[Rfam]
This 209-nucleotide RNA sequence from Dechloromonas aromatica belongs to the Rfam family "permuted transfer-messenger RNA".
The family's consensus secondary structure is taken from published work.
Taxonomically the source falls in Dechloromonas aromatica (nom. nud.) (Bacteria, Pseudomonadota, Rhodocyclales, Dechloromonas).
The family's RNA type in Rfam is non-coding RNA gene.
On this family, see Williams and Bartel, RNA 1996: "Phylogenetic analysis of tmRNA secondary structure".
Rfam's curators put it in the seed alignment.
RNA sequence: GGUUGUAAUUCCGGCAAUCUGGAGGCGUUCUGGACAGGGGUUCGAUUCCCCUCACCUCCACCCAAGGGCAUUCCGCUGAGUGUUUUUGGAUGGGGGUGUACUGGUCUCGACAGGGCGGACAAAGGUGCGCAGGCAACUCGUCAGGCGAUCGACGUUAAUGAAGCAAAUCCAUAAUUGCCAAUGAUGAGCAAUUCGCUAUUGCCGCCUAA
Numbered sequence: 001g002g003u004u005g006u007a008a009u010u011c012c013g014g015c016a017a018u019c020u021g022g023a024g025g026c027g028u029u030c031u032g033g034a035c036a037g038g039g040g041u042u043c044g045a046u047u048c049c050c051c052u053c054a055c056c057u058c059c060a061c062c063c064a065a066g067g068g069c070a071u072u073c074c075g076c077u078g079a080g081u082g083u084u085u086u087u088g089g090a091u092g093g094g095g096g097u098g099u100a101c102u103g104g105u106c107u108c109g110a111c112a113g114g115g116c117g118g119a120c121a122a123a124g125g126u127g128c129g130c131a132g133g134c135a136a137c138u139c140g141u142c143a144g145g146c147g148a149u150c151g152a153c154g155u156u157a158a159u160g161a162a163g164c165a166a167a168u169c170c171a172u173a174a175u176u177g178c179c180a181a182u183g184a185u186g187a188g189c190a191a192u193u194c195g196c197u198a199u200u201g202c203c204g205c206c207u208a209a
Base pairs, nucleotide, nucleotide: 001138002137003136004135005134014128015127016126026117027116028115030113031112032111036052037051038050039049040048053098054097055096056095057094058093059092139154140153141152142151
Dot-bracket structure: (((((........(((.........(((.(((...(((((.......)))))(((((((................................)))))))............))).)))........))).....)))))((((........)))).......................................................